RNA sequence: CCGUGCAGCCGGGGCGUUAGCGGUGCCCUGUACCCACAAUCCGCUCUAGUGGGGGUGAUGCUUUAUCGAGGGCUUUCGCUUGGGUAGCUGCCCUUUAUAAGUGGCGAUGAAGUUUGGGUCUUACGCAAUGAAUGUCCAUGAACCGUGUCAGGGUGGGAACACAGCAGCACUAAGUGGAAUUUUUCAUGUGCCGUGAGGGUGCCUGGCGGAGUUAACUGUAAAGGUAACGUGCUUAAGUCCGGCUCGACAUAAAGCGCACGG
Number, nucleotide and partner (000 for none) at each position: 001c261002c260003g259004u258005g257006c256007a000008g056009c055010c054011g029012g028013g027014g026015c025016g024017u023018u022019a000020g000021c000022g018023g017024u016025g015026c014027c013028c012029u011030g000031u000032a000033c053034c052035c051036a050037c049038a000039a000040u000041c000042c000043g000044c000045u000046c000047u000048a000049g037050u036051g035052g034053g033054g010055g009056u008057g000058a000059u000060g000061c254062u253063u252064u251065a250066u249067c000068g000069a000070g245071g244072g243073c242074u241075u000076u000077c000078g238079c237080u236081u235082g234083g233084g232085u231086a000087g000088c000089u226090g225091c000092c000093c223094u222095u221096u220097a219098u218099a000100a000101g216102u215103g213104g212105c211106g000107a000108u000109g000110a000111a000112g207113u206114u000115u205116g204117g203118g202119u201120c197121u196122u195123a194124c193125g192126c188127a187128a000129u186130g185131a184132a183133u000134g000135u178136c177137c176138a175139u174140g000141a000142a000143c000144c000145g170146u169147g168148u167149c000150a000151g000152g000153g162154u161155g160156g000157g000158a000159a000160c155161a154162c153163a000164g000165c000166a000167g148168c147169a146170c145171u000172a000173a000174g139175u138176g137177g136178a135179a000180u000181u000182u000183u132184u131185c130186a129187u127188g126189u000190g000191c000192c125193g124194u123195g122196a121197g120198g000199g000200u000201g119202c118203c117204u116205g115206g113207c112208g000209g000210a000211g105212u104213u103214a000215a102216c101217u000218g098219u097220a096221a095222a094223g093224g000225u090226a089227a000228c000229g000230u000231g085232c084233u083234u082235a081236a080237g079238u078239c000240c000241g074242g073243c072244u071245c070246g000247a000248c000249a066250u065251a064252a063253a062254g061255c000256g006257c005258a004259c003260g002261g001
RNA: Bacterial large signal recognition particle RNA
Organism: bacterium 0.1xD8-71